The family of this 176-nucleotide RNA from Roseateles puraquae is "Manganese Mn2+ riboswitch aptamer (yybP-ykoY)". About the family: This RNA was originally discovered in E. coli during a large scale screen and was named SraF. The family was later found to exist upstream of related families of protein genes in many bacteria, including the the yybP and ykoK genes in B. subtilis. Lineage of the source: Bacteria > Pseudomonadati > Betaproteobacteria > Burkholderiales > Roseateles. The match comes from Rfam's covariance-model search (103 bits). A reference for the family is Argaman et al. (2001), "Novel small RNA-encoding genes in the intergenic regions of Escherichia coli", Curr Biol.
[Rfam]
RNA sequence: CCCGCCGUCAUUGGGGAGUAGCCGCUCUUCGCUCGAAGAGGCUGACGUCAACACACUUGGCCCGCAGGCCGUGGCGUCAGCAGUUUCCCGACCUGGCAAGACCUUUGACCACUUCGCCUCCGCACUGGCCGGGGAAGCGAUGUGGUCAUUCGUCUGUGAGCCGGCCGUGGAACAUU
Numbered sequence: 001c002c003c004g005c006c007g008u009c010a011u012u013g014g015g016g017a018g019u020a021g022c023c024g025c026u027c028u029u030c031g032c033u034c035g036a037a038g039a040g041g042c043u044g045a046c047g048u049c050a051a052c053a054c055a056c057u058u059g060g061c062c063c064g065c066a067g068g069c070c071g072u073g074g075c076g077u078c079a080g081c082a083g084u085u086u087c088c089c090g091a092c093c094u095g096g097c098a099a100g101a102c103c104u105u106u107g108a109c110c111a112c113u114u115c116g117c118c119u120c121c122g123c124a125c126u127g128g129c130c131g132g133g134g135a136a137g138c139g140a141u142g143u144g145g146u147c148a149u150u151c152g153u154c155u156g157u158g159a160g161c162c163g164g165c166c167g168u169g170g171a172a173c174a175u176u
Stems, first nucleotide, its partner, number of pairs: 026039003041081010058071005082175001085172004